[Rfam]
RNA sequence: UUAUAAUAGUCUGGUAACUCAAGGGUGGUUGGCUCACUCCUCAGGAAAGGGGUGAGCCCUGUGACAGUAUUUGAAGCAUUAAUGUAUGCAGUAGCAUUCGCAGCAUUGAUUGUAACAGUACUUUCAUCAAACCAUAAAAAAUAACCCAUCCUUGAGUUGAGAGCUCAGAUGGGUCACUUAAGACCACUGUAGCCAAGCCCUUGAAGGGACCGACUGUUAUGAUUGACUACUUGAUGCUACAACAUCAAGU
Numbered sequence: 001u002u003a004u005a006a007u008a009g010u011c012u013g014g015u016a017a018c019u020c021a022a023g024g025g026u027g028g029u030u031g032g033c034u035c036a037c038u039c040c041u042c043a044g045g046a047a048a049g050g051g052g053u054g055a056g057c058c059c060u061g062u063g064a065c066a067g068u069a070u071u072u073g074a075a076g077c078a079u080u081a082a083u084g085u086a087u088g089c090a091g092u093a094g095c096a097u098u099c100g101c102a103g104c105a106u107u108g109a110u111u112g113u114a115a116c117a118g119u120a121c122u123u124u125c126a127u128c129a130a131a132c133c134a135u136a137a138a139a140a141a142u143a144a145c146c147c148a149u150c151c152u153u154g155a156g157u158u159g160a161g162a163g164c165u166c167a168g169a170u171g172g173g174u175c176a177c178u179u180a181a182g183a184c185c186a187c188u189g190u191a192g193c194c195a196a197g198c199c200c201u202u203g204a205a206g207g208g209a210c211c212g213a214c215u216g217u218u219a220u221g222a223u224u225g226a227c228u229a230c231u232u233g234a235u236g237c238u239a240c241a242a243c244a245u246c247a248a249g250u
Stems, first nucleotide, its partner, number of pairs: 001222004006217003010213001012195003015191002018156008027146004034055008063125002066122004076089003100116001167179002198208002229250008